[Rfam]
RNA sequence: CGGAAAGAGAGGGAUUCGAACCCUCGGUACAGUCGUACAACGGAUUAG
Numbered sequence: 001c002g003g004a005a006a007g008a009g010a011g012g013g014a015u016u017c018g019a020a021c022c023c024u025c026g027g028u029a030c031a032g033u034c035g036u037a038c039a040a041c042g043g044a045u046u047a048g
Base pairs, nucleotide, nucleotide: 009025010024011023012022013021027038028037029036030035

Description
A member of the RNA family "Plastid-psbl-rps4 3UTR RNA", 48 nucleotides long. Pairs were carried over by alignment from the consensus structure, which was predicted with LocARNA. On this family, see Zhelyazkova et al., Nucleic Acids Res 2012: "Protein-mediated protection as the predominant mechanism for defining processed mRNA termini in land plant chloroplasts". The family's RNA type in Rfam is cis-regulatory element. Rfam's curators write: Plastid psbl-rps4-psbC is a non-coding RNA (ncRNA) present in plastids. It is compose of two short stem-loops in tandem in the terminal 3 prime untranslate region (3UTR) mostly in psbl and rps4 seed plants genes.